[Rfam]
RNA sequence: AUUUCUAUUCUGCUUAAUUCCACACUGUGGAAGCGGGGGAACCAACGCAGGCGACUGUCGUCUGCCGGGGUGAAUCCGGAUGUAUCUGCAACACGGCUGCCGAAGCCGCUGCAGGUCGUAUCUGGUAGGGCUACUCUCUGGUCCGAAUCCGUCAGCUAACCCCGUAAGCAAAAAAAGGAGAGGUU
Numbered sequence: 001a002u003u004u005c006u007a008u009u010c011u012g013c014u015u016a017a018u019u020c021c022a023c024a025c026u027g028u029g030g031a032a033g034c035g036g037g038g039g040a041a042c043c044a045a046c047g048c049a050g051g052c053g054a055c056u057g058u059c060g061u062c063u064g065c066c067g068g069g070g071u072g073a074a075u076c077c078g079g080a081u082g083u084a085u086c087u088g089c090a091a092c093a094c095g096g097c098u099g100c101c102g103a104a105g106c107c108g109c110u111g112c113a114g115g116u117c118g119u120a121u122c123u124g125g126u127a128g129g130g131c132u133a134c135u136c137u138c139u140g141g142u143c144c145g146a147a148u149c150c151g152u153c154a155g156c157u158a159a160c161c162c163c164g165u166a167a168g169c170a171a172a173a174a175a176a177g178g179a180g181a182g183g184u185u
Base pairs, nucleotide, nucleotide: 011170012169013168014167018032019031020030033165034164035163036162037161038160043067068150069149070148076125077124078123079122080121081120082119083118128144129143130142131141

This 185-nucleotide RNA sequence from Paenibacillaceae bacterium GAS479 belongs to the Rfam family "c-di-AMP riboswitch aptamer (ydaO/yuaA leader)". The match comes from Rfam's covariance-model search (89 bits). For this family Rfam cites "New RNA motifs suggest an expanded scope for riboswitches in bacterial genetic control" (Barrick et al., Proc Natl Acad Sci U S A, 2004).